[Rfam]
Rfam assigns this 225-nucleotide RNA from Solanum commersonii to the family "MIR8007 microRNA precursor family". Its family is annotated with miRNA-mediated post-transcriptional gene silencing and RISC complex in the Gene Ontology. The family has 2 seed sequences and 104 matches in Rfam 15.1.
RNA sequence: AUGUGACACUUUUUUGGAUUUCGAGAUUCAAACAAGUUUAACUUUGACUGUAAAUUUUUCAUAGAUCUUUAAAUAUUUUGAAUUAUCAAUUAUUAUAACUUAUAGUACUUUUUACGUAGUUUACAAAUAUAUAAAUUUUAUUCCAAAAAAAUUGAAGAUUUCAUGCGCAAAUUCCCGGUCAAACUUAAACUGUUUGACUCUCAAAAAAUGAAAAGUGUCACAUAA
Numbered sequence: 001a002u003g004u005g006a007c008a009c010u011u012u013u014u015u016g017g018a019u020u021u022c023g024a025g026a027u028u029c030a031a032a033c034a035a036g037u038u039u040a041a042c043u044u045u046g047a048c049u050g051u052a053a054a055u056u057u058u059u060c061a062u063a064g065a066u067c068u069u070u071a072a073a074u075a076u077u078u079u080g081a082a083u084u085a086u087c088a089a090u091u092a093u094u095a096u097a098a099c100u101u102a103u104a105g106u107a108c109u110u111u112u113u114a115c116g117u118a119g120u121u122u123a124c125a126a127a128u129a130u131a132u133a134a135a136u137u138u139u140a141u142u143c144c145a146a147a148a149a150a151a152u153u154g155a156a157g158a159u160u161u162c163a164u165g166c167g168c169a170a171a172u173u174c175c176c177g178g179u180c181a182a183a184c185u186u187a188a189a190c191u192g193u194u195u196g197a198c199u200c201u202c203a204a205a206a207a208a209u210g211a212a213a214a215g216u217g218u219c220a221c222a223u224a225a
Stems, first nucleotide, its partner, number of pairs: 001223012014211003019206003023202004028197007036190002039187003043183008053173005058167001060165003063161008076148005082142001084140002094133004100126002103123003107120003
The family's consensus secondary structure was predicted with RNAalifold.
Taxonomically the source falls in Solanum (Eukaryota, Embryophyta, Tracheophyta, Mesangiospermae).